[Rfam]
RNA sequence: GCAGUGCCAUGGCCGUCUGAGCUAAGCUCAGAGCAUGAAAAAUAAAGGCGCAGAUAUCUGCGCCUUUUUU
Numbered sequence: 001g002c003a004g005u006g007c008c009a010u011g012g013c014c015g016u017c018u019g020a021g022c023u024a025a026g027c028u029c030a031g032a033g034c035a036u037g038a039a040a041a042a043u044a045a046a047g048g049c050g051c052a053g054a055u056a057u058c059u060g061c062g063c064c065u066u067u068u069u070u
Stems, first nucleotide, its partner, number of pairs: 002019003006013002044067010
The record is a 70-nucleotide RNA sequence, which matches "Salmonella enterica sRNA STnc40" in Rfam.
It is one of the family's seed sequences.